Streptomyces RNA 6106: an 85-nucleotide RNA from Streptomyces sp. TLI_185. Identified by deep sequencing of transcriptome at the end of exponential growth phase. Appears smaller on northern blot than sequencing transcript. This indicates processing step. Pairs were carried over by alignment from the consensus structure.
[Rfam]
RNA sequence: ACGCCGUCCCGAGCGGCGUUCGUGGCCUCGAACGGGCCGGUUGUGCGGGGGUGGUGCCGUGUCGGCGCAGCACCACCCCCGUUCU
Numbered sequence: 001a002c003g004c005c006g007u008c009c010c011g012a013g014c015g016g017c018g019u020u021c022g023u024g025g026c027c028u029c030g031a032a033c034g035g036g037c038c039g040g041u042u043g044u045g046c047g048g049g050g051g052u053g054g055u056g057c058c059g060u061g062u063c064g065g066c067g068c069a070g071c072a073c074c075a076c077c078c079c080c081g082u083u084c085u
Base pairs, nucleotide, nucleotide: 001019002018003017004016005015006014007013020043022041023040025038026036027035028034045082046081047080048079049078050077051076052075053074054073055072056071057070059068060067061066
Dot-bracket structure: (((((((.....)))))))(.((.((((.....))).).)).).(((((((((((((.(((....))).)))))))))))))...
For this family Rfam cites "Deep sequencing-based identification of small non-coding RNAs in Streptomyces coelicolor" (Vockenhuber et al., RNA Biol, 2011). The source organism's lineage runs through Bacteria, Bacillati, Kitasatosporales, Streptomycetaceae and Streptomyces.